[Rfam]
RNA sequence: UGCGUUCAGCACGCGCUUGUCAAUUUUUAGCAGAACAAGGAUAUGAGGUUAUCAAUGUCCAAGGUGGCAUGGAUGCCUUAGAAUAAGAAAAUCUCCCUUUAAGACCGAAAAUAAGAAAGGUUUUAAAGGGAGUUUAUU
Numbered sequence: 001u002g003c004g005u006u007c008a009g010c011a012c013g014c015g016c017u018u019g020u021c022a023a024u025u026u027u028u029a030g031c032a033g034a035a036c037a038a039g040g041a042u043a044u045g046a047g048g049u050u051a052u053c054a055a056u057g058u059c060c061a062a063g064g065u066g067g068c069a070u071g072g073a074u075g076c077c078u079u080a081g082a083a084u085a086a087g088a089a090a091a092u093c094u095c096c097c098u099u100u101a102a103g104a105c106c107g108a109a110a111a112u113a114a115g116a117a118a119g120g121u122u123u124u125a126a127a128g129g130g131a132g133u134u135u136a137u138u
Base pairs, nucleotide, nucleotide: 009020010019011018033135034134035133036132038078039077040076046070048068049067050066051065052064053063094131095130096129097128098127099126100125101124102123105120106119
A member of the RNA family "Streptococcus sRNA SpF22" from Streptococcus infantis, 138 nucleotides long. Rfam classes the family as a small RNA. The base pairs follow the family's consensus structure, which was predicted with mfold.